[Rfam]
RNA sequence: GGAAGGAAGCUCACUGUAGAGGUCAUGUGCCGAGUACAUUUGUUACUCUCUCACCUUGGGGAAGGUCUGAGACAAGAGCCGUUUCUGUCCUUGCAGGACAUCUUCCGAGCCGGGAGAGCGAGCUCCCAGACACUCGGUGCAUGGAGGGGUUUGCACAAGAUGCUAGUUAGUAGUUGGUGGCUUGAUACUGCCUUCCCUGGACUAGUUGAUGCCUAUUCAUCUGGGCAUUGGAAGUGGCUUGUGGCUAGCAUGGCACUGAGUCCAAUGGAUGAGGUGAGGCAACUGUGCCUCAUAACCCAAUUCAGACCACUCUCCGGAAUUCC
Number, nucleotide and partner (000 for none) at each position: 001g323002g322003a321004a320005g315006g314007a313008a000009g000010c273011u272012c271013a270014c000015u268016g000017u000018a000019g057020a056021g055022g054023u000024c000025a000026u000027g000028u000029g000030c000031c000032g048033a047034g046035u045036a044037c042038a000039u000040u000041u000042g037043u000044u036045a035046c034047u033048c032049u000050c000051u000052c000053a000054c022055c021056u020057u019058g000059g000060g000061g000062a000063a000064g000065g000066u000067c305068u304069g303070a302071g301072a000073c000074a000075a000076g000077a246078g245079c244080c243081g000082u000083u000084u000085c000086u100087g099088u098089c097090c096091u000092u000093g000094c000095a000096g090097g089098a088099c087100a086101u117102c116103u115104u114105c113106c112107g000108a000109g000110c000111c000112g106113g105114g104115a103116g102117a101118g242119c241120g240121a239122g238123c237124u236125c000126c000127c000128a000129g000130a000131c000132a000133c000134u000135c000136g000137g000138u227139g226140c225141a000142u000143g000144g000145a000146g000147g000148g000149g000150u000151u000152u000153g000154c000155a000156c000157a000158a000159g000160a000161u000162g000163c000164u000165a000166g000167u000168u000169a000170g000171u000172a000173g000174u000175u000176g000177g000178u000179g000180g000181c000182u000183u000184g000185a000186u000187a000188c000189u000190g000191c000192c000193u000194u000195c000196c000197c000198u000199g000200g000201a000202c000203u000204a000205g000206u000207u000208g000209a000210u000211g000212c000213c000214u000215a000216u000217u000218c000219a000220u000221c000222u000223g000224g000225g140226c139227a138228u000229u000230g000231g000232a000233a000234g000235u000236g124237g123238c122239u121240u120241g119242u118243g080244g079245c078246u077247a000248g000249c000250a000251u000252g000253g000254c000255a000256c000257u000258g000259a000260g000261u000262c000263c000264a000265a000266u000267g000268g015269a000270u013271g012272a011273g010274g293275u292276g291277a290278g289279g288280c287281a000282a000283c000284u000285g000286u000287g280288c279289c278290u277291c276292a275293u274294a000295a000296c000297c000298c000299a000300a000301u071302u070303c069304a068305g067306a000307c000308c000309a000310c000311u000312c000313u007314c006315c005316g000317g000318a000319a000320u004321u003322c002323c001